[Rfam]
RNA sequence: AACGUGGUGGGCUCCGUGCCAGAUGCGCGUUUACACUGCACCUUCCAAUGAAUUCUGUAAAUGCACUAUCUGGUACGACAGCCCACUGCGU
Numbered sequence: 001a002a003c004g005u006g007g008u009g010g011g012c013u014c015c016g017u018g019c020c021a022g023a024u025g026c027g028c029g030u031u032u033a034c035a036c037u038g039c040a041c042c043u044u045c046c047a048a049u050g051a052a053u054u055c056u057g058u059a060a061a062u063g064c065a066c067u068a069u070c071u072g073g074u075a076c077g078a079c080a081g082c083c084c085a086c087u088g089c090g091u
Base pairs, nucleotide, nucleotide: 008085009084010083011082015077016076017075018074019073020072021071022070023069025066027064028063029062030061031060032059033058034057035056
A member of the RNA family "mir-277 microRNA precursor family" from Tenebrio molitor, 91 nucleotides long.
The match comes from Rfam's covariance-model search (82 bits).
Rfam 15.1 lists 170 matches to the family in 166 species.
The family's consensus secondary structure was predicted with RNAalifold.